[Rfam]
RNA sequence: GGUUGGAGGGCUAUGGCCGCACCGUAAGGUGCAGCAAUGCCUGACAGCAGUGCCUUUUGCAUAAUGA
Numbered sequence: 001g002g003u004u005g006g007a008g009g010g011c012u013a014u015g016g017c018c019g020c021a022c023c024g025u026a027a028g029g030u031g032c033a034g035c036a037a038u039g040c041c042u043g044a045c046a047g048c049a050g051u052g053c054c055u056u057u058u059g060c061a062u063a064a065u066g067a
Stems, first nucleotide, its partner, number of pairs: 002048004008042004053066001055064001